[Rfam]
RNA sequence: AGCGACCGGCUGGACAUUCGUAUGCCCAGCCCACAAGUGGAGGCUCCGACUCUCCCACCUGGCUGGCCUUUCGGGCUAGCGGGUCCCCGGUCUGGCAGGGCCCGUCGUUCCGUACGGACGACGUGGAGCUGUCUGAUGCGCCCCGCGGUGACUCCGCAGCGGUGCUCCGGAAGUGAGGAGCCCGCCUGUGUCCCGUUUGGGGCGUUUUGU
Numbered sequence: 001a002g003c004g005a006c007c008g009g010c011u012g013g014a015c016a017u018u019c020g021u022a023u024g025c026c027c028a029g030c031c032c033a034c035a036a037g038u039g040g041a042g043g044c045u046c047c048g049a050c051u052c053u054c055c056c057a058c059c060u061g062g063c064u065g066g067c068c069u070u071u072c073g074g075g076c077u078a079g080c081g082g083g084u085c086c087c088c089g090g091u092c093u094g095g096c097a098g099g100g101c102c103c104g105u106c107g108u109u110c111c112g113u114a115c116g117g118a119c120g121a122c123g124u125g126g127a128g129c130u131g132u133c134u135g136a137u138g139c140g141c142c143c144c145g146c147g148g149u150g151a152c153u154c155c156g157c158a159g160c161g162g163u164g165c166u167c168c169g170g171a172a173g174u175g176a177g178g179a180g181c182c183c184g185c186c187u188g189u190g191u192c193c194c195g196u197u198u199g200g201g202g203c204g205u206u207u208u209g210u
Base pairs, nucleotide, nucleotide: 004092005091006090007089008088009087012027013026029084030083031082032081034061035060037058038057039056040055041053042052062080063079064078065077066076067075068074094133095132096131097130098129103123104122105121106120107119108118140203141202142201143200144199145198146195147194148193155190156189157188159185160184161183162182164181165180166179167178168177
A member of the RNA family "Streptomyces RNA 1601" from Streptomyces zagrosensis, 210 nucleotides long. By type it is a small RNA. It scores 123 bits against the family's covariance model. Identified by deep sequencing of transcriptome at the end of exponential growth phase. Appears longer on northern blot than sequencing transcript. Streptomyces specific.